The family of this 88-nucleotide sequence from Chlorobium sp. is "SAM-Chlorobi RNA". The organism belongs to Chlorobium, within Bacteria. Rfam classes the family as a cis-regulatory element.

RNA sequence: UGGCAUCCCCAUUACCUAUGGACACGGUGCCGCGAGCUCCGGGGCAUAGAGCGCCCCGUGAAGCUUUCGGAAGGUUUUUCGUGUCCAG
Numbered sequence: 001u002g003g004c005a006u007c008c009c010c011a012u013u014a015c016c017u018a019u020g021g022a023c024a025c026g027g028u029g030c031c032g033c034g035a036g037c038u039c040c041g042g043g044g045c046a047u048a049g050a051g052c053g054c055c056c057c058g059u060g061a062a063g064c065u066u067u068c069g070g071a072a073g074g075u076u077u078u079u080c081g082u083g084u085c086c087a088g
Base pairs, nucleotide, nucleotide: 001032002031003030004029005028006027007026009021010020011019012018034066035065036064037063038062040058041057042056043055044054045053